This 185-nucleotide sequence from Romboutsia lituseburensis belongs to the Rfam family "Enterococcus sRNA 2410". A reference for the family is Sinel et al. (2017), "Small RNAs in vancomycin-resistant Enterococcus faecium involved in daptomycin response and resistance", Sci Rep. Rfam classes the family as a small RNA. It scores 61 bits against the family's covariance model. From the family's description: Produced as 2 transcripts on Northern blot. Expressed in mid, late exponential and early stationary phases of growth.
[Rfam]
RNA sequence: UUAGCUAUUUUAGUUAGGUUUGUAUUUAUGAUAGAGAUAAAUCAUCGUAGAUACAGACCCAUUAGGUUAUGUAUCUAUGAUGGCUAAAGAUAAUUAUAAUGUAGCCACAUAGAUAAAAUACUAUGUGGCUUUUUUAAUCCUAGGCAAAAACUAAGCCACAUAGUAUAACUAUGUGGCUUUUUUAU
Numbered sequence: 001u002u003a004g005c006u007a008u009u010u011u012a013g014u015u016a017g018g019u020u021u022g023u024a025u026u027u028a029u030g031a032u033a034g035a036g037a038u039a040a041a042u043c044a045u046c047g048u049a050g051a052u053a054c055a056g057a058c059c060c061a062u063u064a065g066g067u068u069a070u071g072u073a074u075c076u077a078u079g080a081u082g083g084c085u086a087a088a089g090a091u092a093a094u095u096a097u098a099a100u101g102u103a104g105c106c107a108c109a110u111a112g113a114u115a116a117a118a119u120a121c122u123a124u125g126u127g128g129c130u131u132u133u134u135u136a137a138u139c140c141u142a143g144g145c146a147a148a149a150a151c152u153a154a155g156c157c158a159c160a161u162a163g164u165a166u167a168a169c170u171a172u173g174u175g176g177c178u179u180u181u182u183u184a185u
Stems, first nucleotide, its partner, number of pairs: 001087007011077003015073002018058015060071003091153002094150002097147001103130006110123003154178007